[Rfam]
RNA sequence: GGCUAUUGAUAUUUUCACUUUAAAUUGUGAGCUCAUAGAAUGCAGUGUCCACAUUUGUAUCUCUCACACUUAACUGAUGCCU
Numbered sequence: 001g002g003c004u005a006u007u008g009a010u011a012u013u014u015u016c017a018c019u020u021u022a023a024a025u026u027g028u029g030a031g032c033u034c035a036u037a038g039a040a041u042g043c044a045g046u047g048u049c050c051a052c053a054u055u056u057g058u059a060u061c062u063c064u065c066a067c068a069c070u071u072a073a074c075u076g077a078u079g080c081c082u
Stems, first nucleotide, its partner, number of pairs: 001081003031043002033039002
RNA: Small nucleolar RNA SNORD83
Organism: Physeter macrocephalus